This 46-nucleotide RNA sequence from Vagococcus silagei belongs to the Rfam family "Na+ riboswitch aptamer (DUF1646)". NCBI's taxonomy places the organism under Bacteria, Bacillota, Bacilli, Lactobacillales, Vagococcus. Pairs were carried over by alignment from the consensus structure, which is taken from published work. Gene Ontology terms of the family: sodium ion binding and regulation of gene expression.

[Rfam]
RNA sequence: GGUUGGGCGGAAGCUUUCAAGGUAUAUUUUUCUAGGGCGAGAAAAA
Numbered sequence: 001g002g003u004u005g006g007g008c009g010g011a012a013g014c015u016u017u018c019a020a021g022g023u024a025u026a027u028u029u030u031u032c033u034a035g036g037g038c039g040a041g042a043a044a045a046a
Stems, first nucleotide, its partner, number of pairs: 003020003006015003027046007